[Rfam]
RNA sequence: UACAAUCCAGGUGACUGGCGAGAGUCGUGGACAGAACCACAGGGAAACCUGGAUUAUACAGGACAGCCGCUCGCCUGGGCUGGACAC
Number, nucleotide and partner (000 for none) at each position: 001u000002a000003c000004a055005a054006u053007c052008c051009a050010g049011g048012u047013g000014a000015c044016u043017g075018g074019c073020g072021a071022g000023a000024g000025u000026c000027g040028u039029g038030g037031a000032c000033a000034g000035a000036a000037c030038c029039a028040c027041a000042g000043g016044g015045a000046a000047a012048c011049c010050u009051g008052g007053a006054u005055u004056a000057u000058a000059c000060a000061g000062g000063a000064c082065a081066g080067c079068c078069g000070c000071u021072c020073g019074c018075c017076u000077g000078g068079g067080c066081u065082g064083g000084a000085c000086a000087c000
RNA: ZMP/ZTP riboswitch aptamer (pfl RNA motif)